The family of this 282-nucleotide part of an RNA from Gossypium laxum is "Eukaryotic large subunit ribosomal RNA". The source organism's lineage runs through Eukaryota, Embryophyta, Magnoliopsida, Pentapetalae and Gossypium. The match comes from Rfam's covariance-model search (2387 bits). The family has 88 seed sequences and 107,465 matches in Rfam 15.1. Pairs were carried over by alignment from the consensus structure, which is taken from published work.
RNA sequence: GAGUCUGACAUGUGUGUAAGUCAACGGGUUAAAAAACCCUUAAGGCGAACUGAAGCUGAUUGGCGGGAUCCCUUACGGGUGCACCACAGGCCGGCCUUGAUCUUCUGAGAAGGGUUCGAGUGAGACCAUGCCUCCUAAGACUCGAAAGAUGGUGAACUAUGCCUGAGUAGGGUGAAGCCAGUGGAAACUCUAGUGGAGGCCCGCAGCGAUAUUGCCGUGCAAAUCGUUCGUCUGACUUGGGUAUAGGGGCGAGAGACAAAUCAAACCAUCUAGUAGCUGGUU
Numbered sequence: 001g002a003g004u005c006u007g008a009c010a011u012g013u014g015u016g017u018a019a020g021u022c023a024a025c026g027g028g029u030u031a032a033a034a035a036a037c038c039c040u041u042a043a044g045g046c047g048a049a050c051u052g053a054a055g056c057u058g059a060u061u062g063g064c065g066g067g068a069u070c071c072c073u074u075a076c077g078g079g080u081g082c083a084c085c086a087c088a089g090g091c092c093g094g095c096c097u098u099g100a101u102c103u104u105c106u107g108a109g110a111a112g113g114g115u116u117c118g119a120g121u122g123a124g125a126c127c128a129u130g131c132c133u134c135c136u137a138a139g140a141c142u143c144g145a146a147a148g149a150u151g152g153u154g155a156a157c158u159a160u161g162c163c164u165g166a167g168u169a170g171g172g173u174g175a176a177g178c179c180a181g182u183g184g185a186a187a188c189u190c191u192a193g194u195g196g197a198g199g200c201c202c203g204c205a206g207c208g209a210u211a212u213u214g215c216c217g218u219g220c221a222a223a224u225c226g227u228u229c230g231u232c233u234g235a236c237u238u239g240g241g242u243a244u245a246g247g248g249g250c251g252a253g254a255g256a257c258a259a260a261u262c263a264a265a266c267c268a269u270c271u272a273g274u275a276g277c278u279g280g281u282u
Stems, first nucleotide, its partner, number of pairs: 006137002010133001012131005020046003026039005063087001065085002070079002090121002092118003095114003101108002141280002144277001148270006157246011168234001170202004177194002180191002183188001206231004211227002214225001249257001